Glycine riboswitch aptamer: an 88-nucleotide RNA sequence from Octadecabacter temperatus.
[Rfam]
RNA sequence: CUCUCGCCCGCGGGAGAGUCUGGGUUCGACCCAGCGCCGAAGGAGCAACGACCCGGAAACUCUCAGGCACACGGACCGCGGAGCGUAU
Numbered sequence: 001c002u003c004u005c006g007c008c009c010g011c012g013g014g015a016g017a018g019u020c021u022g023g024g025u026u027c028g029a030c031c032c033a034g035c036g037c038c039g040a041a042g043g044a045g046c047a048a049c050g051a052c053c054c055g056g057a058a059a060c061u062c063u064c065a066g067g068c069a070c071a072c073g074g075a076c077c078g079c080g081g082a083g084c085g086u087a088u
Base pairs, nucleotide, nucleotide: 008081009080010079011078012077013076020034021033022032023031036068037067038066039064040063043062044061045060049055050054